RNA sequence: AGAAAAGUGACCGCCGCCCCGCGCAGGGGCGACGCUAGCAGACCGUUGGCAAUACAGGUUCAAAGGCAGAGCGCGGAUAACCGACAGAACAAAACCCACGCCCCCGCGAGCACUCU
Numbered sequence: 001a002g003a004a005a006a007g008u009g010a011c012c013g014c015c016g017c018c019c020c021g022c023g024c025a026g027g028g029g030c031g032a033c034g035c036u037a038g039c040a041g042a043c044c045g046u047u048g049g050c051a052a053u054a055c056a057g058g059u060u061c062a063a064a065g066g067c068a069g070a071g072c073g074c075g076g077a078u079a080a081c082c083g084a085c086a087g088a089a090c091a092a093a094a095c096c097c098a099c100g101c102c103c104c105c106g107c108g109a110g111c112a113c114u115c116u
Base pairs, nucleotide, nucleotide: 011076012075013074014073015031016030017029018028019027020026058067059066060065099108100107101106
The family of this 116-nucleotide RNA from Burkholderia dolosa is "Burkholderia sRNA Bp1_Cand684_SIPHT". A search with the family's covariance model found it, with a score of 117 bits. The family's RNA type in Rfam is small RNA. For this family Rfam cites "Computational discovery and RT-PCR validation of novel Burkholderia conserved and Burkholderia pseudomallei unique sRNAs" (Khoo et al., BMC Genomics, 2012). Pairs were carried over by alignment from the consensus structure, which was predicted with RNAalifold.